[Rfam]
RNA sequence: GGAUUUCUUCGCGGCGGAGCUCGACCGCCCGUCUCGCUAAUCGUCGCCUACAUCGAUCAGCACAAGCUCGAACACGGGGUCGAGCCGAUCUGCCGCGUCCUCACCGAGGCCGGCGCGAAGAUCGCCCAG
Numbered sequence: 001g002g003a004u005u006u007c008u009u010c011g012c013g014g015c016g017g018a019g020c021u022c023g024a025c026c027g028c029c030c031g032u033c034u035c036g037c038u039a040a041u042c043g044u045c046g047c048c049u050a051c052a053u054c055g056a057u058c059a060g061c062a063c064a065a066g067c068u069c070g071a072a073c074a075c076g077g078g079g080u081c082g083a084g085c086c087g088a089u090c091u092g093c094c095g096c097g098u099c100c101u102c103a104c105c106g107a108g109g110c111c112g113g114c115g116c117g118a119a120g121a122u123c124g125c126c127c128a129g
Stems, first nucleotide, its partner, number of pairs: 013029005075129001077127003086124002089121003
RNA: ALIL pseudoknot